[Rfam]
RNA sequence: AUUCUCUCAGCUCUGCUCAACUGUACCUGUCCUGUGGUAUGGUUGUCGUCAAUGGAGAGAGAAAGUAUACUGAGCACAGCAAUGCACGGCAGGAGUGUACCCCCCAGUGGUCUUCCUGUUCCCUUACCAGUGUUCAACAUGA
Numbered sequence: 001a002u003u004c005u006c007u008c009a010g011c012u013c014u015g016c017u018c019a020a021c022u023g024u025a026c027c028u029g030u031c032c033u034g035u036g037g038u039a040u041g042g043u044u045g046u047c048g049u050c051a052a053u054g055g056a057g058a059g060a061g062a063a064a065g066u067a068u069a070c071u072g073a074g075c076a077c078a079g080c081a082a083u084g085c086a087c088g089g090c091a092g093g094a095g096u097g098u099a100c101c102c103c104c105c106a107g108u109g110g111u112c113u114u115c116c117u118g119u120u121c122c123c124u125u126a127c128c129a130g131u132g133u134u135c136a137a138c139a140u141g142a
Base pairs, nucleotide, nucleotide: 002067004065005064007062008061011059012058013057014056019044020043021042022041023040024039025038026037075132076131077130079128081124084121091117092116093115097113099111100110101109
Rfam assigns this 142-nucleotide sequence from Anguilla anguilla to the family "Small nucleolar RNA SNORA64/SNORA10 family". Its Rfam clan is "SNORA64 clan". This family belongs to the H/ACA class of small nucleolar RNAs (snoRNAs) which act as guides in the the modification of uridines to pseudouridines. The match comes from Rfam's covariance-model search (40 bits).